The record is a 280-nucleotide part of an RNA from Galdieria sulphuraria, which matches "Eukaryotic large subunit ribosomal RNA" in Rfam. The source organism's lineage runs through Eukaryota, Bangiophyceae, Galdieriales, Galdieriaceae and Galdieria.
RNA sequence: CGCAAUCUACCAGUGUUUUUCUAUAAAAUGACCCUGGAAAUCCUAGUUUGCAAAAAUCAUCAUAUUUUUUUUGUGAAUGUUGGUUAUUUCCAUGGGAUGUCCAUGUACAUGGUAAAAGUAGAUGCAAGGCUAUAUUCAAGUUGCCCAUGAUUUCCGAAAUUUUUCAAUUUGUGGAAAUGAUGGUGUCUGUGAAUGUGGAAUGUGUAUCUACUUGACUAUGUAUGAUUUAUCUCAAGUAUCAUGGACGAAAUGGUAGAUUUCGACCCGUCUUGAAACACGG
Numbered sequence: 001c002g003c004a005a006u007c008u009a010c011c012a013g014u015g016u017u018u019u020u021c022u023a024u025a026a027a028a029u030g031a032c033c034c035u036g037g038a039a040a041u042c043c044u045a046g047u048u049u050g051c052a053a054a055a056a057u058c059a060u061c062a063u064a065u066u067u068u069u070u071u072u073g074u075g076a077a078u079g080u081u082g083g084u085u086a087u088u089u090c091c092a093u094g095g096g097a098u099g100u101c102c103a104u105g106u107a108c109a110u111g112g113u114a115a116a117a118g119u120a121g122a123u124g125c126a127a128g129g130c131u132a133u134a135u136u137c138a139a140g141u142u143g144c145c146c147a148u149g150a151u152u153u154c155c156g157a158a159a160u161u162u163u164u165c166a167a168u169u170u171g172u173g174g175a176a177a178u179g180a181u182g183g184u185g186u187c188u189g190u191g192a193a194u195g196u197g198g199a200a201u202g203u204g205u206a207u208c209u210a211c212u213u214g215a216c217u218a219u220g221u222a223u224g225a226u227u228u229a230u231c232u233c234a235a236g237u238a239u240c241a242u243g244g245a246c247g248a249a250a251u252g253g254u255a256g257a258u259u260u261c262g263a264c265c266c267g268u269c270u271u272g273a274a275a276c277a278c279g280g
Base pairs, nucleotide, nucleotide: 001262002261004259005258006257007256008255009254010253011252012251017097020096021095022094023093024092101244102243103242104241105240265280266279267278268277